[Rfam]
The record is a 32-nucleotide sequence from Seonamhaeicola algicola, which matches "DUF805b RNA" in Rfam.

RNA sequence: ACAGCGUAAGCCGAAAAGCUUAAGAGUAGGCA
Numbered sequence: 001a002c003a004g005c006g007u008a009a010g011c012c013g014a015a016a017a018g019c020u021u022a023a024g025a026g027u028a029g030g031c032a
Stems, first nucleotide, its partner, number of pairs: 003020003010031003

By type it is a cis-regulatory element. The base pairs follow the family's consensus structure, which is taken from published work.